[Rfam]
RNA sequence: GGCUUUUUUCGCCCAGGCGGAGCUCGACCGCAAACGCAAGUGAUGGUUGAUUUUAUUGAUCAAGAAAAGGGAUUGUAUGGUGUCGAGCCAAUCUGCGAGGUAUUGCCGAUUGCACCA
Number, nucleotide and partner (000 for none) at each position: 001g000002g000003c000004u000005u000006u000007u000008u000009u000010c000011g000012c000013c000014c000015a000016g000017g031018c030019g029020g028021a000022g000023c000024u000025c000026g000027a000028c020029c019030g018031c017032a000033a000034a000035c000036g000037c000038a000039a000040g000041u000042g000043a000044u000045g000046g000047u000048u000049g000050a000051u000052u000053u000054u000055a000056u000057u000058g000059a000060u000061c000062a000063a000064g000065a000066a000067a000068a000069g000070g000071g000072a000073u000074u000075g000076u000077a000078u117079g116080g115081u114082g113083u000084c000085g000086a000087g000088c000089c112090a111091a000092u109093c108094u000095g106096c105097g104098a103099g000100g000101u000102a000103u098104u097105g096106c095107c000108g093109a092110u000111u090112g089113c082114a081115c080116c079117a078
Shown here is a 117-nucleotide sequence from Marinicella pacifica, a member of the family "ALIL pseudoknot".
A reference for the family is Mazauric et al. (2008), "Apical loop-internal loop RNA pseudoknots: a new type of stimulator of -1 translational frameshifting in bacteria", J Biol Chem.
The source organism's lineage runs through Bacteria, Pseudomonadota, Lysobacterales, Marinicellaceae and Marinicella.